mir-9256 microRNA precursor family: a 67-nucleotide sequence from Pipistrellus kuhlii. Its family is annotated with miRNA-mediated post-transcriptional gene silencing and RISC complex in the Gene Ontology. The base pairs follow the family's consensus structure, which was predicted with RNAalifold.

[Rfam]
RNA sequence: UUAUACACUGAGUGGUCAGAUUAUUAUGCGUUCAGAAUUCAUAAUAAUCUGGUCACUCAGUGUAUAU
Numbered sequence: 001u002u003a004u005a006c007a008c009u010g011a012g013u014g015g016u017c018a019g020a021u022u023a024u025u026a027u028g029c030g031u032u033c034a035g036a037a038u039u040c041a042u043a044a045u046a047a048u049c050u051g052g053u054c055a056c057u058c059a060g061u062g063u064a065u066a067u
Stems, first nucleotide, its partner, number of pairs: 004064014019049010
The match comes from Rfam's covariance-model search (84 bits). The source organism's lineage runs through Eukaryota, Craniata, Teleostomi, Euteleostomi and Pipistrellus.